[Rfam]
RNA sequence: UCCUGUAUCGAAAGUGAUCAUGGCGUCCCCGUCGCCAGGUCAUUGAUAGUACAGGAAGAGGAAGCUGUGAGCCUUUCCCGUGUCUGAAGGACGAUCACUUCCUGUCAGACCCUGGUGCUCUCAGACA
Dot-bracket structure: ((((((((....(((((((..((((.......)))).)))))))....)))))))).........((.((((.........(((((.((((........))))..)))))......)))).))....
RNA: Small nucleolar RNA SNORA71